[Rfam]
The family of this 82-nucleotide RNA sequence from Xylophilus rhododendri is "SAH (S-adenosyl-L-homocysteine) riboswitch aptamer".

RNA sequence: GUUUCCGAGGAGCGUUGCAGCGGCGGCCCAGCGCCCCGUCAGGCUCGGAAACCCGGUUCCGCCGCAACGACGCUCACCUGUA
Numbered sequence: 001g002u003u004u005c006c007g008a009g010g011a012g013c014g015u016u017g018c019a020g021c022g023g024c025g026g027c028c029c030a031g032c033g034c035c036c037c038g039u040c041a042g043g044c045u046c047g048g049a050a051a052c053c054c055g056g057u058u059c060c061g062c063c064g065c066a067a068c069g070a071c072g073c074u075c076a077c078c079u080g081u082a
Stems, first nucleotide, its partner, number of pairs: 002051007021038003025035003